Source information:
Shown here is a 39-nucleotide sequence from Rhodoferax antarcticus, a member of the family "CRISPR RNA direct repeat element". The base pairs follow the family's consensus structure, which was predicted with WAR. Lineage of the source: Bacteria > Pseudomonadota > Comamonadaceae > Rhodoferax > Rhodoferax antarcticus.
[Rfam]
Nucleotides: 039
Base pairs, nucleotide, nucleotide: 007028008027009026010025011024012023013022014021015020
Number, partner (000 for none) and nucleotide at each position: 001000g002000u003000a004000g005000u006000u007028c008027g009026c010025c011024c012023g013022c014021c015020a016000g017000c018000a019000a020015u021014g022013g023012c024011g025010g026009g027008c028007g029000c030000g031000g032000a033000u034000u035000g036000a037000a038000a039000c